About this RNA: A member of the RNA family "t44 RNA" from Paraferrimonas haliotis, 89 nucleotides long. This family consists of a number of bacterial RNA genes of between 135 and 170 bases in length. The t44 gene has been identified in several species of enteric bacteria but homologs have also been identified in Pseudomonas and Coxiella species. The t44 gene is found between the map and rpsB genes in all species in the full alignment apart from Shigella flexneri. The function of this RNA is unknown. Taxonomically the source falls in Paraferrimonas (Bacteria, Pseudomonadota, Gammaproteobacteria, Alteromonadales).
[Rfam]
RNA sequence: UUUAACUUAAACAUAAAUCACACACGUUUCGUCACAUUGCCUGGGGUGCCUGAAAAGGUCAGGAACAAUGGGAAGCGUGGAGGUCUAAC
Number, nucleotide and partner (000 for none) at each position: 001u000002u000003u000004a000005a000006c000007u000008u000009a000010a000011a000012c000013a000014u000015a000016a000017a000018u000019c000020a000021c000022a000023c079024a078025c077026g076027u075028u074029u073030c072031g000032u000033c000034a000035c070036a069037u068038u067039g066040c063041c062042u061043g060044g000045g000046g000047u000048g059049c058050c057051u056052g000053a000054a000055a000056a051057g050058g049059u048060c043061a042062g041063g040064a000065a000066c039067a038068a037069u036070g035071g000072g030073a029074a028075g027076c026077g025078u024079g023080g000081a000082g000083g000084u000085c000086u000087a000088a000089c000